RNA sequence: GCUCACGAGAGGCAGCGACAAGCACCUGGCUGGCUGCCCGGCAACCGCUACUCCGUCUGCGGUGCUCCAGGGGAAGAGCCGGUGUGGACGGCGCCCGCCGUCCGCGCAACCGACGGAG
Numbered sequence: 001g002c003u004c005a006c007g008a009g010a011g012g013c014a015g016c017g018a019c020a021a022g023c024a025c026c027u028g029g030c031u032g033g034c035u036g037c038c039c040g041g042c043a044a045c046c047g048c049u050a051c052u053c054c055g056u057c058u059g060c061g062g063u064g065c066u067c068c069a070g071g072g073g074a075a076g077a078g079c080c081g082g083u084g085u086g087g088a089c090g091g092c093g094c095c096c097g098c099c100g101u102c103c104g105c106g107c108a109a110c111c112g113a114c115g116g117a118g
Stems, first nucleotide, its partner, number of pairs: 001079004009039001011038006021031002040066003045062003050056001082107010
SAM (S-adenosyl methionine) riboswitch aptamer: a 118-nucleotide RNA sequence from Geodermatophilus sp. Leaf369. NCBI's taxonomy places the organism under Bacteria, Bacillati, Actinomycetota, Geodermatophilaceae, Geodermatophilus. The family's consensus secondary structure is taken from published work.